Rfam assigns this 76-nucleotide RNA sequence from Alligator mississippiensis to the family "Mammalian CPEB3 ribozyme".
[Rfam]
RNA sequence: AGUUGCAAGUUUGAGGCUAUAGCAGAUGUGCUCAUGGCACAGCCUGUUGGGUUCCAAUAAAUUUGCAAAUUUUGCU
Numbered sequence: 001a002g003u004u005g006c007a008a009g010u011u012u013g014a015g016g017c018u019a020u021a022g023c024a025g026a027u028g029u030g031c032u033c034a035u036g037g038c039a040c041a042g043c044c045u046g047u048u049g050g051g052u053u054c055c056a057a058u059a060a061a062u063u064u065g066c067a068a069a070u071u072u073u074g075c076u
Stems, first nucleotide, its partner, number of pairs: 015044004021076006028040003048065006
Its family is annotated with RNA nuclease activity in the Gene Ontology.